This 155-nucleotide sequence from Populus tomentosa belongs to the Rfam family "MIR2912 microRNA precursor family".
RNA sequence: UCUAGAACUCGAUAGAUGGGCUGAACACUUAACAAUGUAUGGGCUUAGGAUAAAUUCAAACUUCUCCAUUGUUACUAUAAUUUGGACUUGAAAAUGACCUUUUUAAAUCUUGGACUCUACAUGAAAGUUGUAGGCCUAUGUCUUGCCUUUUCAUC
Numbered sequence: 001u002c003u004a005g006a007a008c009u010c011g012a013u014a015g016a017u018g019g020g021c022u023g024a025a026c027a028c029u030u031a032a033c034a035a036u037g038u039a040u041g042g043g044c045u046u047a048g049g050a051u052a053a054a055u056u057c058a059a060a061c062u063u064c065u066c067c068a069u070u071g072u073u074a075c076u077a078u079a080a081u082u083u084g085g086a087c088u089u090g091a092a093a094a095u096g097a098c099c100u101u102u103u104u105a106a107a108u109c110u111u112g113g114a115c116u117c118u119a120c121a122u123g124a125a126a127g128u129u130g131u132a133g134g135c136c137u138a139u140g141u142c143u144u145g146c147c148u149u150u151u152c153a154u155c
Stems, first nucleotide, its partner, number of pairs: 003153001005151003009145001011144002014141001016139005021133003025129001027128003035122003041118003045114002047111005053104002062096001071087003
It scores 90 bits against the family's covariance model. The family's consensus secondary structure was predicted with RNAalifold.